Nucleotides: 098
Base pairs, nucleotide, nucleotide: 001098002097003095004094005093006092007091043050044049
Number, partner (000 for none) and nucleotide at each position: 001098a002097g003095c004094a005093u006092c007091a008000a009000g010000u011000g012000a013000u014000g015000a016000a017000a018000u019000c020000u021000g022000g023000a024000a025000a026000a027000a028000u029000c030000u031000u032000a033000g034000g035000a036000c037000a038000c039000c040000u041000u042000c043050c044049u045000a046000c047000a048000c049044a050043g051000c052000a053000u054000g055000g056000u057000u058000u059000u060000g061000c062000u063000g064000u065000g066000g067000a068000u069000g070000a071000g072000a073000a074000g075000a076000a077000c078000a079000a080000c081000u082000c083000c084000a085000u086000u087000c088000u089000g090000a091007u092006g093005a094004u095003g096000g097002c098001u
This 98-nucleotide RNA from Corymbia citriodora belongs to the Rfam family "Small nucleolar RNA snoR31/Z110/Z27". Pairs were carried over by alignment from the consensus structure, which was predicted with PFOLD. It scores 49 bits against the family's covariance model. The literature on the family includes a 2001 paper in J Mol Biol by Barneche et al., "Identification of 66 box C/D snoRNAs in Arabidopsis thaliana: extensive gene duplications generated multiple isoforms predicting new ribosomal RNA 2'-O-methylation sites". The family's RNA type in Rfam is C/D-box small nucleolar RNA. Rfam describes the family as follows. This family contains several related snoRNAs including R31, Z27 and Z110.